[Rfam]
RNA sequence: UUAACCUGGGGAUCUUGUUAAAGUGCAGAUUCUGAUUCAGUAGAUCUGGGGAGGAACACAAGAUUCUGCAUUUCUAACAAGCUCCCAGGUGUGGCCCA
Numbered sequence: 001u002u003a004a005c006c007u008g009g010g011g012a013u014c015u016u017g018u019u020a021a022a023g024u025g026c027a028g029a030u031u032c033u034g035a036u037u038c039a040g041u042a043g044a045u046c047u048g049g050g051g052a053g054g055a056a057c058a059c060a061a062g063a064u065u066c067u068g069c070a071u072u073u074c075u076a077a078c079a080a081g082c083u084c085c086c087a088g089g090u091g092u093g094g095c096c097c098a
Stems, first nucleotide, its partner, number of pairs: 004090002009085003014081007021073003025069005031063003
Shown here is a 98-nucleotide sequence from Equus asinus, a member of the family "mir-544 microRNA precursor family".
Taxonomically the source falls in Equus (Eukaryota, Chordata, Craniata, Theria).
For this family Rfam cites "Mammalian microRNAs: experimental evaluation of novel and previously annotated genes" (Chiang et al., Genes Dev, 2010).
The base pairs follow the family's consensus structure, which was predicted with RNAalifold.
Gene Ontology terms of the family: miRNA-mediated post-transcriptional gene silencing and RISC complex.
The family has 16 seed sequences and 10,750 matches in Rfam 15.1.